[Rfam]
RNA sequence: AGCUUAUCAAGAGAAGCGGAGGGAACUGGCCCGGCGAAGCUCGGCAACCUGCUUAUAGAAAGCAAGGUGCUAAAUCCAGCAAAAUGGAAUCCAUUUUGAAAGAUAAGGU
Numbered sequence: 001a002g003c004u005u006a007u008c009a010a011g012a013g014a015a016g017c018g019g020a021g022g023g024a025a026c027u028g029g030c031c032c033g034g035c036g037a038a039g040c041u042c043g044g045c046a047a048c049c050u051g052c053u054u055a056u057a058g059a060a061a062g063c064a065a066g067g068u069g070c071u072a073a074a075u076c077c078a079g080c081a082a083a084a085u086g087g088a089a090u091c092c093a094u095u096u097u098g099a100a101a102g103a104u105a106a107g108g109u
Stems, first nucleotide, its partner, number of pairs: 001109001003107006013042001015041003021032003026079004043071004048067002050064004075101001080098006
Notes
Shown here is a 109-nucleotide RNA from Bacillus thuringiensis, a member of the family "SAM riboswitch aptamer (S box leader)". NCBI's taxonomy places the organism under Bacteria, Bacillati, Caryophanales, Bacillus thuringiensis, [Bacillus thuringiensis] serovar konkukian. The family's consensus secondary structure is taken from published work.